[Rfam]
RNA sequence: GCGCGAGGACGACCUCCCCAUUUUCGGACAAUUGCCGGGACGACCCGG
Numbered sequence: 001g002c003g004c005g006a007g008g009a010c011g012a013c014c015u016c017c018c019c020a021u022u023u024u025c026g027g028a029c030a031a032u033u034g035c036c037g038g039g040a041c042g043a044c045c046c047g048g
Stems, first nucleotide, its partner, number of pairs: 003018001005016004035048005
Dot-bracket structure: ..(.((((....)))).)................(((((....)))))
A member of the RNA family "Guanidine-II riboswitch aptamer (mini-ykkC)" from Salipiger pallidus, 48 nucleotides long. The family's consensus secondary structure is taken from published work. It scores 40 bits against the family's covariance model. Simpler in structure and has fewer highly conserved nucleotide positions than the ykkC-yxkD leader.